RNA sequence: CCUCUGCUGAUGAGUAACCGUUUGACUUUCGUUCUUCUGAGCAUGCUGAAGCCAUGUUUAUCGAUCUGAGGAGG
Numbered sequence: 001c002c003u004c005u006g007c008u009g010a011u012g013a014g015u016a017a018c019c020g021u022u023u024g025a026c027u028u029u030c031g032u033u034c035u036u037c038u039g040a041g042c043a044u045g046c047u048g049a050a051g052c053c054a055u056g057u058u059u060a061u062c063g064a065u066c067u068g069a070g071g072a073g074g
Stems, first nucleotide, its partner, number of pairs: 001074003005070001